[Rfam]
RNA sequence: AUUUUAUAUUAAGCGCCAGAACUUAAGAAUGUGCAAGCGUAAUCGAUUAGAUAUUUUCCAGAAAUUUAAUAAAUAAAAUUUCUGGAAAAUAUCUUACUUAAGUUGACGAGGACAAGGAGUAUCGAAAAUUCGGCGGAUACCUUGCGGUAUGGCACUACCGAAAAUAUUGACAAAACCAAGAAGUAAUUUUUGGGACAAUAUCAAUAAGGUGCCUGA
Numbered sequence: 001a002u003u004u005u006a007u008a009u010u011a012a013g014c015g016c017c018a019g020a021a022c023u024u025a026a027g028a029a030u031g032u033g034c035a036a037g038c039g040u041a042a043u044c045g046a047u048u049a050g051a052u053a054u055u056u057u058c059c060a061g062a063a064a065u066u067u068a069a070u071a072a073a074u075a076a077a078a079u080u081u082c083u084g085g086a087a088a089a090u091a092u093c094u095u096a097c098u099u100a101a102g103u104u105g106a107c108g109a110g111g112a113c114a115a116g117g118a119g120u121a122u123c124g125a126a127a128a129u130u131c132g133g134c135g136g137a138u139a140c141c142u143u144g145c146g147g148u149a150u151g152g153c154a155c156u157a158c159c160g161a162a163a164a165u166a167u168u169g170a171c172a173a174a175a176c177c178a179a180g181a182a183g184u185a186a187u188u189u190u191u192g193g194g195a196c197a198a199u200a201u202c203a204a205u206a207a208g209g210u211g212c213c214u215g216a
Stems, first nucleotide, its partner, number of pairs: 020104008029095001113144005122133004145160005165206005176193007
The record is a 216-nucleotide RNA from Clostridium pasteurianum, which matches "glmS glucosamine-6-phosphate activated ribozyme aptamer" in Rfam. It scores 95 bits against the family's covariance model. The literature on the family includes a 2006 paper in Biochemistry by Hampel and Tinsley, "Evidence for preorganization of the glmS ribozyme ligand binding pocket". The source organism's lineage runs through Bacteria, Bacillota, Clostridia, Clostridium and Clostridium pasteurianum. It is annotated as a riboswitch. This entry contains a glucosamine-6-phosphate activated ribozyme that is found in the mRNA for GlmS. GlmS is an enzyme that uses fructose-6-phosphate and glutamine to generate glucosamine-6-phosphate. The ribozyme catalyses self cleavage of the glmS mRNA that is thought to regulate GlmS activity.